Shown here is an 81-nucleotide sequence from Golovinomyces cichoracearum, a member of the family "drz-agam-1 ribozyme". Rfam links the family to the GO term catalytic activity.
RNA sequence: GGCGUCAAGUCCUAUUCUGCACCUCCUCGUGGUGGCGCCUGGGAACCCUUUCUCUCCGGAGAAAGGUGCUAAGCAGGAAGG
Numbered sequence: 001g002g003c004g005u006c007a008a009g010u011c012c013u014a015u016u017c018u019g020c021a022c023c024u025c026c027u028c029g030u031g032g033u034g035g036c037g038c039c040u041g042g043g044a045a046c047c048c049u050u051u052c053u054c055u056c057c058g059g060a061g062a063a064a065g066g067u068g069c070u071a072a073g074c075a076g077g078a079a080g081g
Base pairs, nucleotide, nucleotide: 011081012080013079015078016077017076018075019074020073021033022032023031045067046066047065050063051062052061053060054059
Pairs were carried over by alignment from the consensus structure, which is taken from published work. A reference for the family is Webb et al. (2009), "Widespread occurrence of self-cleaving ribozymes", Science. The match comes from Rfam's covariance-model search (37 bits).